[Rfam]
RNA sequence: CGGGCCGAGAGGCGCUGCAACGGACCUCGCGUCCGCCACGCUCGGCCACGGAACAAGGGCGCCUUCCUUGA
Number, nucleotide and partner (000 for none) at each position: 001c000002g000003g047004g046005c045006c044007g043008a042009g000010a000011g000012g000013c000014g000015c000016u000017g000018c000019a000020a000021c035022g034023g033024a032025c031026c000027u000028c000029g000030c000031g025032u024033c023034c022035g021036c000037c000038a000039c000040g000041c000042u008043c007044g006045g005046c004047c003048a000049c000050g000051g000052a000053a000054c000055a000056a000057g000058g000059g000060c000061g000062c000063c000064u000065u000066c000067c000068u000069u000070g000071a000
This 71-nucleotide sequence from Amycolatopsis pithecellobii belongs to the Rfam family "SAH (S-adenosyl-L-homocysteine) riboswitch aptamer". The family has 52 seed sequences and 1,354 matches in Rfam 15.1. The literature on the family includes a 2008 paper in Mol Cell by Wang et al., "Riboswitches that sense S-adenosylhomocysteine and activate genes involved in coenzyme recycling". A search with the family's covariance model found it, with a score of 41 bits.